[Rfam]
The family of this 83-nucleotide RNA sequence from Punica granatum is "Small nucleolar RNA SNORD18". It is annotated as a C/D-box small nucleolar RNA.
RNA sequence: GAGAAGUGAUGAGGAAAACCUUUUCGGUCCGUGUUUCUGAUACAACCGUGACUGAUACUUCAUUAACCUUUCCCUCUGAUCUC
Numbered sequence: 001g002a003g004a005a006g007u008g009a010u011g012a013g014g015a016a017a018a019c020c021u022u023u024u025c026g027g028u029c030c031g032u033g034u035u036u037c038u039g040a041u042a043c044a045a046c047c048g049u050g051a052c053u054g055a056u057a058c059u060u061c062a063u064u065a066a067c068c069u070u071u072c073c074c075u076c077u078g079a080u081c082u083c
Stems, first nucleotide, its partner, number of pairs: 001083004
The literature on the family includes a 1993 paper in Nucleic Acids Res by Prislei et al., "Two different snoRNAs are encoded in introns of amphibian and human L1 ribosomal protein genes".
Rfam 15.1 lists 2,622 matches to the family in 960 species.
Its family is annotated with nucleolus and RNA processing in the Gene Ontology.